This 52-nucleotide RNA from Actinopolymorpha alba belongs to the Rfam family "L17-Actino-Proteobacteria ribosomal protein leader". The sequence is in the family's curated seed alignment. By type it is a cis-regulatory leader. A reference for the family is Eckert and Weinberg (2020), "Discovery of 20 novel ribosomal leader candidates in bacteria and archaea", BMC Microbiol.

RNA sequence: CCGGUACCUCACACGGCCGGACUGAUACCGGUACCUCAUACGGCCGGUGCAG
Numbered sequence: 001c002c003g004g005u006a007c008c009u010c011a012c013a014c015g016g017c018c019g020g021a022c023u024g025a026u027a028c029c030g031g032u033a034c035c036u037c038a039u040a041c042g043g044c045c046g047g048u049g050c051a052g
Stems, first nucleotide, its partner, number of pairs: 001020005022052003026049007